[Rfam]
RNA sequence: CGCGUCUUUCUUCGGGGCGGAACUCGACCGCCAACACAAGAAAUAGUGGCCUUCAUCGACUUAGAUAGGGACGAUAUUGUGGCCGGGCGCCGUCUUGGAGUCGAGUCCAUCUGCAGGGUAUUGCGGGUGGCUCCA
Dot-bracket structure: ...............(((((.......)))))...............................................................(((((......((.(((((((....))))))).)))))))
Numbered sequence: 001c002g003c004g005u006c007u008u009u010c011u012u013c014g015g016g017g018c019g020g021a022a023c024u025c026g027a028c029c030g031c032c033a034a035c036a037c038a039a040g041a042a043a044u045a046g047u048g049g050c051c052u053u054c055a056u057c058g059a060c061u062u063a064g065a066u067a068g069g070g071a072c073g074a075u076a077u078u079g080u081g082g083c084c085g086g087g088c089g090c091c092g093u094c095u096u097g098g099a100g101u102c103g104a105g106u107c108c109a110u111c112u113g114c115a116g117g118g119u120a121u122u123g124c125g126g127g128u129g130g131c132u133c134c135a
Stems, first nucleotide, its partner, number of pairs: 016032005096135005107130002110127007
The record is a 135-nucleotide RNA sequence from Flaviflexus salsibiostraticola, which matches "ALIL pseudoknot" in Rfam. The family's RNA type in Rfam is cis-regulatory element. The base pairs follow the family's consensus structure, which is taken from published work.